[Rfam]
RNA sequence: GAAAAAACGUUGAUGGAGACUAGUAGCUAGCAAUUCGCUAUUUAGGGAGAAGGUGCCGUGACUGAAAGUACCUUUAUAGAAGAAGCGAGUGAAUUCACCUCCUGAGUUGACACUUGGACCAAUGAAUUGUAAAGGUGUUCCGGCAAAGCCGUUAAUCGUAACGAAGAGAGUAAUGCAAUCAGUAUGUGCAUUGCUAACUAGGGUGGUAACGCGACUAAUACUCGUCCCUUUU
Numbered sequence: 001g002a003a004a005a006a007a008c009g010u011u012g013a014u015g016g017a018g019a020c021u022a023g024u025a026g027c028u029a030g031c032a033a034u035u036c037g038c039u040a041u042u043u044a045g046g047g048a049g050a051a052g053g054u055g056c057c058g059u060g061a062c063u064g065a066a067a068g069u070a071c072c073u074u075u076a077u078a079g080a081a082g083a084a085g086c087g088a089g090u091g092a093a094u095u096c097a098c099c100u101c102c103u104g105a106g107u108u109g110a111c112a113c114u115u116g117g118a119c120c121a122a123u124g125a126a127u128u129g130u131a132a133a134g135g136u137g138u139u140c141c142g143g144c145a146a147a148g149c150c151g152u153u154a155a156u157c158g159u160a161a162c163g164a165a166g167a168g169a170g171u172a173a174u175g176c177a178a179u180c181a182g183u184a185u186g187u188g189c190a191u192u193g194c195u196a197a198c199u200a201g202g203g204u205g206g207u208a209a210c211g212c213g214a215c216u217a218a219u220a221c222u223c224g225u226c227c228c229u230u231u232u
Base pairs, nucleotide, nucleotide: 007107008106015102016101017100018099026090027089028088030086031085038079039078040077049075050074051073052072053071054070055069056068110138111137112136113135114134115133141151142150143149169195170194171193172192173191174190175189176188177187200229201228202227203226211225212224213223214222
Shown here is a 232-nucleotide sequence from Priestia koreensis, a member of the family "T-box leader". Rfam's curators write: Uncharged tRNA acts as the effector for transcription antitermination of genes in the T-box leader family. T-boxes are found upstream of many aminoacyl-tRNA synthetase genes and some amino acid biosynthetic genes usually in Gram-positive bacteria. Its family is annotated with tRNA binding in the Gene Ontology. For this family Rfam cites "Interaction between the acceptor end of tRNA and the T box stimulates antitermination in the Bacillus subtilis tyrS gene: a new role for the discriminator base" (Grundy et al., J Bacteriol, 1994). A search with the family's covariance model found it, with a score of 115 bits. Lineage of the source: Bacteria > Bacillati > Bacillota > Caryophanales > Priestia.